This 82-nucleotide RNA sequence from Triplophysa tibetana belongs to the Rfam family "mir-194 microRNA precursor family". The organism belongs to Triplophysa, within Eukaryota. Pairs were carried over by alignment from the consensus structure, which was predicted with RNAalifold. The match comes from Rfam's covariance-model search (64 bits). Gene Ontology terms of the family: RISC complex and miRNA-mediated post-transcriptional gene silencing.
RNA sequence: UGGUGCUCACUGGGUGUAACAGCCACUUCAUGUGGAAAACUAUUGAAAUGCCACUGGAGAAGCUGUUACCUGCAGAGAGUCA
Numbered sequence: 001u002g003g004u005g006c007u008c009a010c011u012g013g014g015u016g017u018a019a020c021a022g023c024c025a026c027u028u029c030a031u032g033u034g035g036a037a038a039a040c041u042a043u044u045g046a047a048a049u050g051c052c053a054c055u056g057g058a059g060a061a062g063c064u065g066u067u068a069c070c071u072g073c074a075g076a077g078a079g080u081c082a
Stems, first nucleotide, its partner, number of pairs: 010075003016069008026059005033053003